[Rfam]
RNA sequence: AAAAUUAAAGAUCUCCGAGUCAGGUAAACCUUAGCCGGUAGCAGGUAUGGUUGUCUGGCCGUUAGGGUGUGUUGGGAAACAAACGCGCCUCCCAUUGUGGAAAGGAGAACAUGGCUAGAAGCA
Numbered sequence: 001a002a003a004a005u006u007a008a009a010g011a012u013c014u015c016c017g018a019g020u021c022a023g024g025u026a027a028a029c030c031u032u033a034g035c036c037g038g039u040a041g042c043a044g045g046u047a048u049g050g051u052u053g054u055c056u057g058g059c060c061g062u063u064a065g066g067g068u069g070u071g072u073u074g075g076g077a078a079a080c081a082a083a084c085g086c087g088c089c090u091c092c093c094a095u096u097g098u099g100g101a102a103a104g105g106a107g108a109a110c111a112u113g114g115c116u117a118g119a120a121g122c123a
Stems, first nucleotide, its partner, number of pairs: 004116001006114001012108005019059008028051003034046003065090009075080001091100002
Shown here is a 123-nucleotide sequence from Pelotomaculum isophthalicicum, a member of the family "Molybdenum/Tungsten riboswitch aptamer (Moco RNA motif)". The base pairs follow the family's consensus structure, which is taken from published work. The source organism's lineage runs through Bacteria, Bacillota, Desulfotomaculaceae, Pelotomaculum and Pelotomaculum isophthalicicum.